[Rfam]
RNA sequence: GCCGGUGUAAAUGAUGACUUCGCUUUUUUCCCCAUCAGAUCGACAAUGCUGAUGUCUUAAAAUACUUGCCAGUUGUUUCUGAUAUACCGGC
Numbered sequence: 001g002c003c004g005g006u007g008u009a010a011a012u013g014a015u016g017a018c019u020u021c022g023c024u025u026u027u028u029u030c031c032c033c034a035u036c037a038g039a040u041c042g043a044c045a046a047u048g049c050u051g052a053u054g055u056c057u058u059a060a061a062a063u064a065c066u067u068g069c070c071a072g073u074u075g076u077u078u079c080u081g082a083u084a085u086a087c088c089g090g091c
Stems, first nucleotide, its partner, number of pairs: 001091009